[Rfam]
RNA sequence: GGUCUGUGAUGAUAAACAUUAAGGCUUGUUUCUCAAAACAUUCGCAGUUGCCGCCUAAAGCUUUCGUCUUUCGCCGGACUUGAGAGCUUAUGAUGUUCUUAUCCUUCCUUGGAUGUCUGAGACC
Numbered sequence: 001g002g003u004c005u006g007u008g009a010u011g012a013u014a015a016a017c018a019u020u021a022a023g024g025c026u027u028g029u030u031u032c033u034c035a036a037a038a039c040a041u042u043c044g045c046a047g048u049u050g051c052c053g054c055c056u057a058a059a060g061c062u063u064u065c066g067u068c069u070u071u072c073g074c075c076g077g078a079c080u081u082g083a084g085a086g087c088u089u090a091u092g093a094u095g096u097u098c099u100u101a102u103c104c105u106u107c108c109u110u111g112g113a114u115g116u117c118u119g120a121g122a123c124c
Stems, first nucleotide, its partner, number of pairs: 001124004060087006
RNA: Small nucleolar RNA SNORD14
Organism: Arabis alpina